[Rfam]
RNA: Lysine riboswitch aptamer
RNA sequence: ACCAACAAAAGAGGUCGCAAUCGACAUGAGUAAAUGAGGGAGCUUCUGUAAGAGCUAUGAACUUAUUGAAAGGGGAAGUUGCCGAAGCACUAAAUUUUACAGGAUUUAGCGAGCUGGGGCGUAUUAGAAGAUGAUACGAACUGUCGUGAUCAAAUAGUCGGUCACGUUGAGCUUAUGACAAA
Number, nucleotide and partner (000 for none) at each position: 001a000002c000003c000004a000005a000006c177007a176008a000009a174010a173011g172012a000013g000014g000015u000016c000017g082018c081019a080020a079021u078022c000023g000024a000025c074026a000027u000028g000029a000030g000031u000032a000033a067034a066035u065036g064037a063038g000039g000040g000041a000042g000043c000044u000045u000046c000047u000048g000049u000050a000051a000052g000053a000054g000055c000056u000057a000058u000059g000060a000061a000062c000063u037064u036065a035066u034067u033068g000069a000070a000071a000072g000073g000074g025075g000076a000077a000078g021079u020080u019081g018082c017083c000084g000085a000086a115087g114088c113089a000090c109091u108092a107093a106094a105095u104096u000097u000098u000099a000100c000101a000102g000103g000104a095105u094106u093107u092108a091109g090110c000111g000112a000113g088114c087115u086116g142117g141118g000119g000120c138121g137122u136123a135124u134125u133126a132127g000128a000129a000130g000131a000132u126133g125134a124135u123136a122137c121138g120139a000140a000141c117142u116143g000144u000145c166146g165147u164148g163149a162150u161151c000152a000153a000154a000155u000156a000157g000158u000159c000160g000161g150162u149163c148164a147165c146166g145167u000168u000169g000170a000171g000172c011173u010174u009175a000176u007177g006178a000179c000180a000181a000182a000